Annotation:
A member of the RNA family "mir-9242 microRNA precursor family" from Cnephaeus nilssonii, 62 nucleotides long.

RNA sequence: GGCCUCCCUCUGUGGGGUGAUCAAUCCAGAGCCCCUGAUUGAUCACCCCACAGAGGGAGGCC
Numbered sequence: 001g002g003c004c005u006c007c008c009u010c011u012g013u014g015g016g017g018u019g020a021u022c023a024a025u026c027c028a029g030a031g032c033c034c035c036u037g038a039u040u041g042a043u044c045a046c047c048c049c050a051c052a053g054a055g056g057g058a059g060g061c062c
Stems, first nucleotide, its partner, number of pairs: 001062026029034001
Dot-bracket structure: ((((((((((((((((((((((((((..(....)..))))))))))))))))))))))))))

It scores 66 bits against the family's covariance model. NCBI's taxonomy places the organism under Eukaryota, Chordata, Vertebrata, Amniota, Cnephaeus. Its family is annotated with miRNA-mediated post-transcriptional gene silencing and RISC complex in the Gene Ontology.